[Rfam]
RNA sequence: ACAACAUUCGGACCGUCGACCUACCGAGCAAUAUCACCAGCUCGGUGGAAGAUCUUUCCUUUCGUCGU
Numbered sequence: 001a002c003a004a005c006a007u008u009c010g011g012a013c014c015g016u017c018g019a020c021c022u023a024c025c026g027a028g029c030a031a032u033a034u035c036a037c038c039a040g041c042u043c044g045g046u047g048g049a050a051g052a053u054c055u056u057u058c059c060u061u062u063c064g065u066c067g068u
Stems, first nucleotide, its partner, number of pairs: 004065002010059003015053003021048009
The family of this 68-nucleotide sequence from Bombyx mori is "mir-2774 microRNA precursor family". Rfam links the family to the GO terms miRNA-mediated post-transcriptional gene silencing and RISC complex. A reference for the family is Liu et al. (2010), "MicroRNAs of Bombyx mori identified by Solexa sequencing", BMC Genomics.